[Rfam]
Shown here is a 93-nucleotide RNA sequence from Camelus ferus, a member of the family "mir-433 microRNA precursor family".
A search with the family's covariance model found it, with a score of 99 bits.
A reference for the family is Jin et al. (2009), "Characterization of bovine miRNAs by sequencing and bioinformatics analysis", BMC Mol Biol.
The family's consensus secondary structure was predicted with RNAalifold.
RNA sequence: CCGGGGAGAAGCACGGUGAGCCCGUCGUUGUUCAGAGAGGCGAGGUCCUCCGCGCUGAGAAGGACCAUGAUGGGCUUCUCGGUGUUCUCCAGG
Numbered sequence: 001c002c003g004g005g006g007a008g009a010a011g012c013a014c015g016g017u018g019a020g021c022c023c024g025u026c027g028u029u030g031u032u033c034a035g036a037g038a039g040g041c042g043a044g045g046u047c048c049u050c051c052g053c054g055c056u057g058a059g060a061a062g063g064a065c066c067a068u069g070a071u072g073g074g075c076u077u078c079u080c081g082g083u084g085u086u087c088u089c090c091a092g093g
Stems, first nucleotide, its partner, number of pairs: 001093002005090006014081003018077011030065003033054001037050004